A member of the RNA family "LOOT RNA", 120 nucleotides long. The family's RNA type in Rfam is small RNA. It is one of the family's seed sequences.
RNA sequence: UGCCUAAACCCUAUAUUUCUAUGGGGCAUGGCAUAAAAUCCCUCGUAGGUAUCAAGCUCGUCGUCAGAGCACCUGCGAGGGUCAUGUCGGGAAACUGGCAUGGGUGGCCGUAAGGCCAUC
Numbered sequence: 001u002g003c004c005u006a007a008a009c010c011c012u013a014u015a016u017u018u019c020u021a022u023g024g025g026g027c028a029u030g031g032c033a034u035a036a037a038a039u040c041c042c043u044c045g046u047a048g049g050u051a052u053c054a055a056g057c058u059c060g061u062c063g064u065c066a067g068a069g070c071a072c073c074u075g076c077g078a079g080g081g082u083c084a085u086g087u088c089g090g091g092a093a094a095c096u097g098g099c100a101u102g103g104g105u106g107g108c109c110g111u112a113a114g115g116c117c118a119u120c
Stems, first nucleotide, its partner, number of pairs: 001033004009026007040081011056070004083102008103120006